RNA sequence: CACCGUGGCGGCGGUGUAAAACAAACAUUAAGCCGCCAGCGUCCCGGAACAAGGCAUUUUCCGAUUCUCCGGGGGUUGCA
Numbered sequence: 001c002a003c004c005g006u007g008g009c010g011g012c013g014g015u016g017u018a019a020a021a022c023a024a025a026c027a028u029u030a031a032g033c034c035g036c037c038a039g040c041g042u043c044c045c046g047g048a049a050c051a052a053g054g055c056a057u058u059u060u061c062c063g064a065u066u067c068u069c070c071g072g073g074g075g076u077u078g079c080a
Stems, first nucleotide, its partner, number of pairs: 001016004006038006026078002032040001042074007
RNA: Pistol ribozyme
Organism: Ethanoligenens harbinense